[Rfam]
RNA sequence: CUCUUAUCAAGAGAGGUGGAGGGACUGGCCCGAUGAAACCCGGCAACCACGAAUUGUUUUUGCAAUUCGAAGGUGCUAAUUCCAACAACACUUAUGUGUUGAAAGAUGAGAG
Numbered sequence: 001c002u003c004u005u006a007u008c009a010a011g012a013g014a015g016g017u018g019g020a021g022g023g024a025c026u027g028g029c030c031c032g033a034u035g036a037a038a039c040c041c042g043g044c045a046a047c048c049a050c051g052a053a054u055u056g057u058u059u060u061u062g063c064a065a066u067u068c069g070a071a072g073g074u075g076c077u078a079a080u081u082c083c084a085a086c087a088a089c090a091c092u093u094a095u096g097u098g099u100u101g102a103a104a105g106a107u108g109a110g111a112g
Stems, first nucleotide, its partner, number of pairs: 001112008013041001015040003021031003026084003042077004047073002050069006081104001086101006